[Rfam]
RNA sequence: CUGCGCCGCCCUUCUUGGGCGUUUCCUCCCUAGACUUGGGCUGCGCGUUGCGCGGCCCUUUUUUUAUGCCCGG
Numbered sequence: 001c002u003g004c005g006c007c008g009c010c011c012u013u014c015u016u017g018g019g020c021g022u023u024u025c026c027u028c029c030c031u032a033g034a035c036u037u038g039g040g041c042u043g044c045g046c047g048u049u050g051c052g053c054g055g056c057c058c059u060u061u062u063u064u065u066a067u068g069c070c071c072g073g
Stems, first nucleotide, its partner, number of pairs: 008020004038058009
About this RNA: Shown here is a 73-nucleotide RNA sequence from Chelatococcus reniformis, a member of the family "Makes More Granules Regulator RNA (mmgR)". The match comes from Rfam's covariance-model search (66 bits). It is annotated as a small RNA. The base pairs follow the family's consensus structure.